RNA sequence: UGAUGGCCGUUCCUCUCUUUGCCCGUAGUGUUGGGCCUGUGAGAUUUUAGGCUAUCACAGACUAAACUGAUCUUUUUCACUCAGGGAUGUGCUGGUGGGUUGGCUGCCUCUCCACAUCAUCUGAAUUUUGCGGGAUCAGACAUGU
Number, nucleotide and partner (000 for none) at each position: 001u057002g056003a055004u054005g053006g052007c051008c050009g000010u000011u000012c000013c000014u044015c043016u042017c041018u000019u000020u000021g036022c035023c034024c000025g000026u000027a000028g000029u000030g000031u000032u000033g000034g023035g022036c021037c000038u000039g000040u000041g017042a016043g015044a014045u000046u000047u000048u000049a000050g008051g007052c006053u005054a004055u003056c002057a001058c000059a000060g000061a000062c000063u000064a000065a000066a000067c000068u000069g137070a136071u135072c134073u133074u132075u000076u000077u000078c000079a000080c000081u124082c123083a122084g121085g120086g118087a117088u116089g115090u114091g000092c000093u000094g110095g109096u000097g107098g000099g000100u000101u000102g000103g000104c000105u000106g000107c097108c000109u095110c094111u000112c000113c000114a090115c089116a088117u087118c086119a000120u085121c084122u083123g082124a081125a000126u000127u000128u000129u000130g000131c000132g074133g073134g072135a071136u070137c069138a000139g000140a000141c000142a000143u000144g000145u000

The record is a 145-nucleotide RNA from Leptobrachium leishanense, which matches "Small nucleolar RNA SNORA79" in Rfam. Taxonomically the source falls in Leptobrachium (Eukaryota, Bilateria, Dipnotetrapodomorpha, Amphibia). On this family, see Schattner et al., RNA 2006: "A computational screen for mammalian pseudouridylation guide H/ACA RNAs". Rfam 15.1 lists 944 matches to the family in 375 species. Its family is annotated with RNA processing and nucleolus in the Gene Ontology. From the family's description: ACA65 (SNORA79) is a member of the H/ACA class of snoRNAs that guide the sites of modification of uridines to pseudouridines. It scores 94 bits against the family's covariance model.